[Rfam]
RNA: Small nucleolar RNA R12
RNA sequence: AAGGGGCUGUGACGAAAGAAAUCGUUCGGAUUCCCAAUGAUCUUAUCCAUGAUAUUAAACCAGCUACUUCUGACCCUC
Numbered sequence: 001a002a003g004g005g006g007c008u009g010u011g012a013c014g015a016a017a018g019a020a021a022u023c024g025u026u027c028g029g030a031u032u033c034c035c036a037a038u039g040a041u042c043u044u045a046u047c048c049a050u051g052a053u054a055u056u057a058a059a060c061c062a063g064c065u066a067c068u069u070c071u072g073a074c075c076c077u078c
Base pairs, nucleotide, nucleotide: 002077003076004075005074